[Rfam]
RNA sequence: CUGCGAAUAAUUCUCGCCUGUUUGGUCAGUCUGUGAUCAGAUCAGGGCUAGACAUUCGCUAUAUAAACACCUUCAGAGUGUCCACAGAUCUGGCUUGGUGUCUUUUCUGUUUUCAAUACUGCUGGUUACAUUU
Numbered sequence: 001c002u003g004c005g006a007a008u009a010a011u012u013c014u015c016g017c018c019u020g021u022u023u024g025g026u027c028a029g030u031c032u033g034u035g036a037u038c039a040g041a042u043c044a045g046g047g048c049u050a051g052a053c054a055u056u057c058g059c060u061a062u063a064u065a066a067a068c069a070c071c072u073u074c075a076g077a078g079u080g081u082c083c084a085c086a087g088a089u090c091u092g093g094c095u096u097g098g099u100g101u102c103u104u105u106u107c108u109g110u111u112u113u114c115a116a117u118a119c120u121g122c123u124g125g126u127u128a129c130a131u132u133u
Base pairs, nucleotide, nucleotide: 003059004058005057017046018045019044020043021041022040023039024038025037026036027035069126070125071124084110085109086108087107088106092102093101

A member of the RNA family "Small nucleolar RNA SNORA72" from Atractosteus spatula, 133 nucleotides long. The base pairs follow the family's consensus structure, which was predicted with PFOLD. On this family, see Ganot et al., Genes Dev 1997: "The family of box ACA small nucleolar RNAs is defined by an evolutionarily conserved secondary structure and ubiquitous sequence elements essential for RNA accumulation". Rfam describes the family as follows. U72 is a member of the H/ACA class of snoRNAs. The snoRNA gene is located in intron 4 of the ribosomal L30 protein gene in human, mouse and chicken.